[Rfam]
RNA sequence: CCAGACGACCGGAUGGCCGCCUCCGCACCGGUUCGCGCCGGCCGCGGGGGAGGAAAGUCCGGGCUCCACGGAAACACGGUGCCGGGUAACGCCCGGCGGGGGCGACCCCAGGGAAAGUGCCACAGAGAGGAGACCGCCGGCCGGGACGUUCGCGUCCGCCGGCAAGGGUGAAAGGGUGCGGUAAGAGCGCACCGCGCUGCCGGUAACGGCAACGGCACGGUAAACCCCACCGGGAGCAAGACCAAGUAGGGACGACAGGCCGCUUGAGCGGCCGGGCAUUGUUUUCGCGCCGUCGUCCGGGUCGGUCGCGUGAGGCGUCCGGUAACGGGCGUCCCAGAUGAAUGGUCAUCCCCCGCUUUGCGGCGGGGACAGAACCCGGCUUACAGGUCGUCUGGCAUU
Numbered sequence: 001c002c003a004g005a006c007g008a009c010c011g012g013a014u015g016g017c018c019g020c021c022u023c024c025g026c027a028c029c030g031g032u033u034c035g036c037g038c039c040g041g042c043c044g045c046g047g048g049g050g051a052g053g054a055a056a057g058u059c060c061g062g063g064c065u066c067c068a069c070g071g072a073a074a075c076a077c078g079g080u081g082c083c084g085g086g087u088a089a090c091g092c093c094c095g096g097c098g099g100g101g102g103c104g105a106c107c108c109c110a111g112g113g114a115a116a117g118u119g120c121c122a123c124a125g126a127g128a129g130g131a132g133a134c135c136g137c138c139g140g141c142c143g144g145g146a147c148g149u150u151c152g153c154g155u156c157c158g159c160c161g162g163c164a165a166g167g168g169u170g171a172a173a174g175g176g177u178g179c180g181g182u183a184a185g186a187g188c189g190c191a192c193c194g195c196g197c198u199g200c201c202g203g204u205a206a207c208g209g210c211a212a213c214g215g216c217a218c219g220g221u222a223a224a225c226c227c228c229a230c231c232g233g234g235a236g237c238a239a240g241a242c243c244a245a246g247u248a249g250g251g252a253c254g255a256c257a258g259g260c261c262g263c264u265u266g267a268g269c270g271g272c273c274g275g276g277c278a279u280u281g282u283u284u285u286c287g288c289g290c291c292g293u294c295g296u297c298c299g300g301g302u303c304g305g306u307c308g309c310g311u312g313a314g315g316c317g318u319c320c321g322g323u324a325a326c327g328g329g330c331g332u333c334c335c336a337g338a339u340g341a342a343u344g345g346u347c348a349u350c351c352c353c354c355g356c357u358u359u360g361c362g363g364c365g366g367g368g369a370c371a372g373a374a375c376c377c378g379g380c381u382u383a384c385a386g387g388u389c390g391u392c393u394g395g396c397a398u399u
Stems, first nucleotide, its partner, number of pairs: 001395010011384001012350007020050007055382003059379005064236004072284004077232005082096005097111001098109004112227002117225002119221003134167002136163006143156002175193006194216001195214002198211005240307004250298006275291003279287001314333008
Rfam assigns this 399-nucleotide sequence from Candidatus Defluviicoccus seviourii to the family "Bacterial RNase P class A". Lineage of the source: Bacteria > Pseudomonadati > Alphaproteobacteria > Rhodospirillaceae > Defluviicoccus.